[Rfam]
RNA sequence: UCAUCGUAUUAGGGGGUCAUUGUAGAAGCGUGCUCGUCGCGUUCCCUGCCAGCCCUUUUCAGGGCUGCAAUUCUACA
Numbered sequence: 001u002c003a004u005c006g007u008a009u010u011a012g013g014g015g016g017u018c019a020u021u022g023u024a025g026a027a028g029c030g031u032g033c034u035c036g037u038c039g040c041g042u043u044c045c046c047u048g049c050c051a052g053c054c055c056u057u058u059u060c061a062g063g064g065c066u067g068c069a070a071u072u073c074u075a076c077a
Stems, first nucleotide, its partner, number of pairs: 013046004018041001021077007028040003050067007
RNA: Mammalian CPEB3 ribozyme
Organism: Parnassius apollo